[Rfam]
RNA sequence: GGUAUUCCUUAUCUAUCUAAUACGUUGAUUUGUCUGGAACCUGUCCCAUUGUGCUCUUCGGCAAGAACACAAUAAGACAGGUUCUGCGUUUAGUUGCCGCGCUCUAAAAGUAC
Numbered sequence: 001g002g003u004a005u006u007c008c009u010u011a012u013c014u015a016u017c018u019a020a021u022a023c024g025u026u027g028a029u030u031u032g033u034c035u036g037g038a039a040c041c042u043g044u045c046c047c048a049u050u051g052u053g054c055u056c057u058u059c060g061g062c063a064a065g066a067a068c069a070c071a072a073u074a075a076g077a078c079a080g081g082u083u084c085u086g087c088g089u090u091u092a093g094u095u096g097c098c099g100c101g102c103u104c105u106a107a108a109a110g111u112a113c
Base pairs, nucleotide, nucleotide: 001098002097003096004095022089023088024087025086036085037084038083039082040081041080042079043078044077045076048073049072050071051070052069055066056065057064058063
A member of the RNA family "tp2", 113 nucleotides long. The family's RNA type in Rfam is small RNA. The base pairs follow the family's consensus structure, which was predicted with RNAalifold.